[Rfam]
RNA sequence: CUUUGUAGUUUUCCACAGCUUUCUUGAACUGCAUCUACCCUUCAUGGUUCAGCAAUAUUGCGGUUCAAUAAAGCUGUGGGAAGUUAUAGUGA
Numbered sequence: 001c002u003u004u005g006u007a008g009u010u011u012u013c014c015a016c017a018g019c020u021u022u023c024u025u026g027a028a029c030u031g032c033a034u035c036u037a038c039c040c041u042u043c044a045u046g047g048u049u050c051a052g053c054a055a056u057a058u059u060g061c062g063g064u065u066c067a068a069u070a071a072a073g074c075u076g077u078g079g080g081a082a083g084u085u086a087u088a089g090u091g092a
Stems, first nucleotide, its partner, number of pairs: 003089005013079003017075006024068004029063005
Dot-bracket structure: ..(((((.....(((.((((((.((((.(((((.........................))))).)))).)))))).))).....)))))...